[Rfam]
RNA sequence: UGAGAUAACUAUCAUUAAGGAACUCGGCAAAAUGGCCCCGUAACUUCGGGAUAAGGGGUGCCUGUCACGUUAUUUGAGUUCGCUCAGAAAAGCGUGCAACAGGUUUCAACAAAGAGGCCCAACCGACUGUUUAACAAAAACACAAGGCUCUGCAAACUCGUAAGAGGAAGUAUAGAGUCUGACGCCUGCCCAGUGCUGGAAGGUUAAUAAGAGAGGUUAGCUCGCAAGAGCGAAGCUUUGAAUUGAAGCCCCAGUAAACGGCGGCCGUAACUAUAACGGUCCUAAGGUAGCGAAGUACCUUGUCGGGUAAAUUCCGACGCGCAUGAAUGGCGUAACGAGUUGGGCGCUGUCUUGAUGAUAGACUCA
Numbered sequence: 001u002g003a004g005a006u007a008a009c010u011a012u013c014a015u016u017a018a019g020g021a022a023c024u025c026g027g028c029a030a031a032a033u034g035g036c037c038c039c040g041u042a043a044c045u046u047c048g049g050g051a052u053a054a055g056g057g058g059u060g061c062c063u064g065u066c067a068c069g070u071u072a073u074u075u076g077a078g079u080u081c082g083c084u085c086a087g088a089a090a091a092g093c094g095u096g097c098a099a100c101a102g103g104u105u106u107c108a109a110c111a112a113a114g115a116g117g118c119c120c121a122a123c124c125g126a127c128u129g130u131u132u133a134a135c136a137a138a139a140a141c142a143c144a145a146g147g148c149u150c151u152g153c154a155a156a157c158u159c160g161u162a163a164g165a166g167g168a169a170g171u172a173u174a175g176a177g178u179c180u181g182a183c184g185c186c187u188g189c190c191c192a193g194u195g196c197u198g199g200a201a202g203g204u205u206a207a208u209a210a211g212a213g214a215g216g217u218u219a220g221c222u223c224g225c226a227a228g229a230g231c232g233a234a235g236c237u238u239u240g241a242a243u244u245g246a247a248g249c250c251c252c253a254g255u256a257a258a259c260g261g262c263g264g265c266c267g268u269a270a271c272u273a274u275a276a277c278g279g280u281c282c283u284a285a286g287g288u289a290g291c292g293a294a295g296u297a298c299c300u301u302g303u304c305g306g307g308u309a310a311a312u313u314c315c316g317a318c319g320c321g322c323a324u325g326a327a328u329g330g331c332g333u334a335a336c337g338a339g340u341u342g343g344g345c346g347c348u349g350u351c352u353u354g355a356u357g358a359u360a361g362a363c364u365c366a
Base pairs, nucleotide, nucleotide: 001366002365003364004363009361010360011359012358013357014356015355016354018352019351020350035059036058037057038056039055044049060104061103062102063101064100065099073088074087075086076085077084078083105109117345118344119343120342121341122340123339124337125336128142129141130140145180146179147178148177149176150175151174152173153170157166158165159164183332184331185330186329188262189261190260193259194258195255196254197253198252199251202250203249204248209243213239214238215237216236217235220231221230222229223228263281264280265279266278267277268276282286302318303317304316305315306314307313
Dot-bracket structure: ((((....((((((((.(((..............(((((....(....).....)))))((((((.......((((((....))))))..........))))))(...).......(((((((((..(((.........)))..(((((((((...(((....)))...)..))))))))..((((.(((..(((((((..(((....(...(((((..((((....))))...)))))...)....))))))))..)))))((((((.......))))))(...)...............((((((.....))))))..........))))...)).)))))))....))).)))))))).))))